[Rfam]
RNA sequence: CGCAUAUUUUGCCCAGGCGGAGCUCGACCGCCCGUUCAGACGAUGAAGGCGUUCAUCGACGAGAACCGUGACGAUUACGGGGUCGAGCCGAUCUGCCGAGUUCUGCCGAUCGCCCCG
Numbered sequence: 001c002g003c004a005u006a007u008u009u010u011g012c013c014c015a016g017g018c019g020g021a022g023c024u025c026g027a028c029c030g031c032c033c034g035u036u037c038a039g040a041c042g043a044u045g046a047a048g049g050c051g052u053u054c055a056u057c058g059a060c061g062a063g064a065a066c067c068g069u070g071a072c073g074a075u076u077a078c079g080g081g082g083u084c085g086a087g088c089c090g091a092u093c094u095g096c097c098g099a100g101u102u103c104u105g106c107c108g109a110u111c112g113c114c115c116c117g
Base pairs, nucleotide, nucleotide: 016032017031018030019029020028078117079116080115081114082113089112090111092109093108095106096105098103
The family of this 117-nucleotide sequence from Aurantimonas aggregata is "ALIL pseudoknot".